RNA: 7SK RNA
RNA sequence: GGAUAUGAAGGUAACCUGGCUGUGAGAUCUGAUAUGCAUGGGUUGAUCUGACUGAUCUGGCUAGCUCUUAAGCAGGUGUUCGCUUUCUUCCUUGGCAUUCCAUGUGUGUUCCUCCUGGUGCUGUGUGCUUGGUUAAUGAGGACACCCUCCCCAAUAGACAUGGUUCAUUGGGCAAGGGUGUAUGGUAGCUGUGCUCCCCUGCUGGAGCUCUAAGUAAGCUCAACGUCCAUUUGUAGAUGAAUGUAAGGUAGUCAAGCAUCCAAUACUGAAGACAUAUCAGUAUGAGAAUGAGAAGCUGCAUGCAGUAGUUUGGCAGUGGCUUUUUUU
Numbered sequence: 001g002g003a004u005a006u007g008a009a010g011g012u013a014a015c016c017u018g019g020c021u022g023u024g025a026g027a028u029c030u031g032a033u034a035u036g037c038a039u040g041g042g043u044u045g046a047u048c049u050g051a052c053u054g055a056u057c058u059g060g061c062u063a064g065c066u067c068u069u070a071a072g073c074a075g076g077u078g079u080u081c082g083c084u085u086u087c088u089u090c091c092u093u094g095g096c097a098u099u100c101c102a103u104g105u106g107u108g109u110u111c112c113u114c115c116u117g118g119u120g121c122u123g124u125g126u127g128c129u130u131g132g133u134u135a136a137u138g139a140g141g142a143c144a145c146c147c148u149c150c151c152c153a154a155u156a157g158a159c160a161u162g163g164u165u166c167a168u169u170g171g172g173c174a175a176g177g178g179u180g181u182a183u184g185g186u187a188g189c190u191g192u193g194c195u196c197c198c199c200u201g202c203u204g205g206a207g208c209u210c211u212a213a214g215u216a217a218g219c220u221c222a223a224c225g226u227c228c229a230u231u232u233g234u235a236g237a238u239g240a241a242u243g244u245a246a247g248g249u250a251g252u253c254a255a256g257c258a259u260c261c262a263a264u265a266c267u268g269a270a271g272a273c274a275u276a277u278c279a280g281u282a283u284g285a286g287a288a289u290g291a292g293a294a295g296c297u298g299c300a301u302g303c304a305g306u307a308g309u310u311u312g313g314c315a316g317u318g319g320c321u322u323u324u325u326u327u
Stems, first nucleotide, its partner, number of pairs: 001101003006094003010090002013086002018083001024080002027077005033071001035063001037059002041057004045052001109163002113158002115132004120128002133154002140150003188257003194251002197248002200245003208239001211236001214234005284326005